RNA sequence: CUUUAACAAUCUGGAACAAGCUGAAAAUUGAAACCUGACAGCUGAAACUUAUCCCACCGUAGAGUUAUGGGGAUAAGGAGUACCCUGUCAGAGAGUCUCUCAAAUGUUUACAGCACGAUGUGUUCUCUGUUUACAGAAGACACCUUCGG
Dot-bracket structure: ...................(..(((.(((....(.((((((...........................................))))))..).........))).))).)....(((.(((((..............)))).).))).

Rfam assigns this 149-nucleotide RNA sequence from Chania multitudinisentens to the family "Salmonella enterica Typhi npcRNA 44". On this family, see Chinni et al., Nucleic Acids Res 2010: "Experimental identification and characterization of 97 novel npcRNA candidates in Salmonella enterica serovar Typhi". It is annotated as a non-coding RNA gene. The family has 34 seed sequences and 474 matches in Rfam 15.1. It scores 63 bits against the family's covariance model. The organism belongs to Chania multitudinisentens, within Bacteria.